Rfam assigns this 111-nucleotide sequence from Hufsiella ginkgonis to the family "SAM riboswitch aptamer (S box leader)".
RNA sequence: GAUUUAUAAAGAAGUGGUGAGAGACAGGCUCCGAGACCCACUGACAACCCCCCUGAGUAUUUGGGGAAGGUGCCAAAUCCUGUCCUGGUAAGAACCGGGAAAAUAUAAAUG
Numbered sequence: 001g002a003u004u005u006a007u008a009a010a011g012a013a014g015u016g017g018u019g020a021g022a023g024a025c026a027g028g029c030u031c032c033g034a035g036a037c038c039c040a041c042u043g044a045c046a047a048c049c050c051c052c053c054u055g056a057g058u059a060u061u062u063g064g065g066g067a068a069g070g071u072g073c074c075a076a077a078u079c080c081u082g083u084c085c086u087g088g089u090a091a092g093a094a095c096c097g098g099g100a101a102a103a104u105a106u107a108a109a110u111g
Stems, first nucleotide, its partner, number of pairs: 002110007013042005021031003025082004043074001045072002048070002050066004078103001083100006
The SAM riboswitch is found upstream of a number of genes which code for proteins involved in methionine or cysteine biosynthesis in Gram-positive bacteria. Lineage of the source: Bacteria > Bacteroidota > Sphingobacteriia > Sphingobacteriales > Hufsiella. A search with the family's covariance model found it, with a score of 77 bits.